[Rfam]
RNA sequence: UUAACUCAAAUUUCUAUGGAUUUGGAACUUUUGCCUACGUUUGCCGCUAGGGGCGCUGUUCUAAUUACAUACAAAUUUGAGUUA
Number, nucleotide and partner (000 for none) at each position: 001u000002u000003a000004a000005c000006u000007c000008a078009a077010a076011u075012u074013u073014c000015u071016a070017u000018g068019g000020a066021u000022u064023u063024g062025g061026a060027a059028c058029u000030u000031u000032u000033g000034c052035c051036u050037a000038c000039g047040u046041u000042u000043g000044c000045c000046g040047c039048u000049a000050g036051g035052g034053g000054c000055g000056c000057u000058g028059u027060u026061c025062u024063a023064a022065u000066u020067a000068c018069a000070u016071a015072c000073a013074a012075a011076u010077u009078u008079g000080a000081g000082u000083u000084a000
The family of this 84-nucleotide RNA sequence from Bombyx mori is "mir-2807 microRNA precursor family". Pairs were carried over by alignment from the consensus structure, which was predicted with RNAalifold. For this family Rfam cites "MicroRNAs of Bombyx mori identified by Solexa sequencing" (Liu et al., BMC Genomics, 2010). Rfam links the family to the GO terms RISC complex and miRNA-mediated post-transcriptional gene silencing.